[Rfam]
RNA sequence: GUGUGCCGAAAAGCACACACAUAUAAUAAUGCGAUGUUUUGUGCAAAGCACAAAACUCGUCAGAUAAACAGUGGGGCUGAAUUUCUGCCGAACUGUUUAUCAUAU
Numbered sequence: 001g002u003g004u005g006c007c008g009a010a011a012a013g014c015a016c017a018c019a020c021a022u023a024u025a026a027u028a029a030u031g032c033g034a035u036g037u038u039u040u041g042u043g044c045a046a047a048g049c050a051c052a053a054a055a056c057u058c059g060u061c062a063g064a065u066a067a068a069c070a071g072u073g074g075g076g077c078u079g080a081a082u083u084u085c086u087g088c089c090g091a092a093c094u095g096u097u098u099a100u101c102a103u104a105u
Base pairs, nucleotide, nucleotide: 001018002017003016004015005014006013032059033058034057036056037055038054039053040052041051042050043049063101064100065099066098067097068096069095070094071093072092075089076088
RNA: TD-2 RNA